[Rfam]
Nucleotides: 111
Stems, first nucleotide, its partner, number of pairs: 006083005015032001017030005033059003038055003041051003045107003085095004
Number, partner (000 for none) and nucleotide at each position: 001000c002000u003000c004000c005000a006083g007082c008081a009080u010079c011000a012000a013000g014000a015032g016000u017030c018029g019028g020027g021026c022000c023000g024000a025000c026021g027020u028019c029018c030017g031000a032015c033059g034058c035057c036000a037000a038055c039054c040053u041051g042050c043049u044000c045107c046106c047105c048000g049043a050042g051041c052000a053040a054039g055038g056000u057035g058034g059033u060000g061000c062000c063000u064000u065000c066000c067000c068000g069000a070000a071000a072000g073000g074000g075000c076000a077000g078000g079010g080009a081008u082007g083006u084000g085095g086094c087093c088092g089000g090000a091000c092088c093087g094086g095085c096000a097000a098000c099000c100000a101000a102000a103000c104000g105047g106046g107045g108000u109000c110000u111000g
The record is a 111-nucleotide sequence from Sphingomonas metalli, which matches "SAM-I/IV (S-adenosyl methionine) riboswitch aptamer" in Rfam. The base pairs follow the family's consensus structure, which is taken from published work.